[Rfam]
RNA sequence: UAUUGAAAGUUUCUUCGAGUCUCUUGUUCCAAGAGGUUCUACCUAUGAACAAAAGACUGUUAGGGUAAAGUUGGAAGCAGCUUUGCCUCCCAGUUUGGAAAGAAGGGAACGUAGUUGAAAC
Numbered sequence: 001u002a003u004u005g006a007a008a009g010u011u012u013c014u015u016c017g018a019g020u021c022u023c024u025u026g027u028u029c030c031a032a033g034a035g036g037u038u039c040u041a042c043c044u045a046u047g048a049a050c051a052a053a054a055g056a057c058u059g060u061u062a063g064g065g066u067a068a069a070g071u072u073g074g075a076a077g078c079a080g081c082u083u084u085g086c087c088u089c090c091c092a093g094u095u096u097g098g099a100a101a102g103a104a105g106g107g108a109a110c111g112u113a114g115u116u117g118a119a120a121c
Stems, first nucleotide, its partner, number of pairs: 004114001006112001011107006019057004024052006033044001035042001063088011089098002
RNA: Molybdenum/Tungsten riboswitch aptamer (Moco RNA motif)
Organism: Proteiniborus sp. DW1